The family of this 120-nucleotide RNA from Paenibacillus albus is "Bacillus sRNA ncr1015".
The match comes from Rfam's covariance-model search (90 bits).
For this family Rfam cites "Identification of regulatory RNAs in Bacillus subtilis" (Irnov et al., Nucleic Acids Res, 2010).
The base pairs follow the family's consensus structure, which is taken from published work.

[Rfam]
RNA sequence: AUAUAAGAUGAACUUACUAUGUCAAAAAUCAAAUAUCUAGUCGUGAUCCGAUUAUAACAUCGCGUCUAUUAAAGUGCAAAAUAUAAAGAACCUGGACGGUCUGUCCAGGUUCUUUUCUGU
Numbered sequence: 001a002u003a004u005a006a007g008a009u010g011a012a013c014u015u016a017c018u019a020u021g022u023c024a025a026a027a028a029u030c031a032a033a034u035a036u037c038u039a040g041u042c043g044u045g046a047u048c049c050g051a052u053u054a055u056a057a058c059a060u061c062g063c064g065u066c067u068a069u070u071a072a073a074g075u076g077c078a079a080a081a082u083a084u085a086a087a088g089a090a091c092c093u094g095g096a097c098g099g100u101c102u103g104u105c106c107a108g109g110u111u112c113u114u115u116u117c118u119g120u
Base pairs, nucleotide, nucleotide: 034073036071038068039065042062043061085115086114087113088112089111090110091109092108093107094106095105